[Rfam]
RNA sequence: GGCUGGUUUGGGUGCAGUAGUGUUACAACUGGUGAUCACAACCAGUUCCAGAUUUCUUUGUUCCUUCUUCACUCCAACUGCUUCACUUGACUAACCUUAA
Dot-bracket structure: ((.(((((.((..(.(((.(.(....(((.((........................)).)))...........)).)))....)..))))))).))....
Shown here is a 100-nucleotide RNA from Theropithecus gelada, a member of the family "Y RNA". Rfam's curators write: Y RNAs are components of the Ro ribonucleoprotein particle (Ro RNP), in association with Ro60 and La proteins. The Y RNAs and Ro60 and La proteins are well conserved, but the function of the Ro RNP is not known. In humans the RNA component can be one of four small RNAs -- hY1, hY3, hY4 and hY5. The base pairs follow the family's consensus structure, which is taken from published work. On this family, see Chen et al., Genes Dev 2000: "Ro ribonucleoproteins contribute to the resistance of Deinococcus radiodurans to ultraviolet irradiation". The match comes from Rfam's covariance-model search (54 bits).